RNA sequence: UGGUGAAAAGGGUAAACUUAUCGAAAGAUAAGGACACAAAGCCAUGGGUCUACGGAAUGGUGUCCAGUGGUCAUUAUUCUAUGAUUGCCAGGCUGCCGAA
Numbered sequence: 001u002g003g004u005g006a007a008a009a010g011g012g013u014a015a016a017c018u019u020a021u022c023g024a025a026a027g028a029u030a031a032g033g034a035c036a037c038a039a040a041g042c043c044a045u046g047g048g049u050c051u052a053c054g055g056a057a058u059g060g061u062g063u064c065c066a067g068u069g070g071u072c073a074u075u076a077u078u079c080u081a082u083g084a085u086u087g088c089c090a091g092g093c094u095g096c097c098g099a100a
Stems, first nucleotide, its partner, number of pairs: 012037002017032006040094004045090003048085003055079008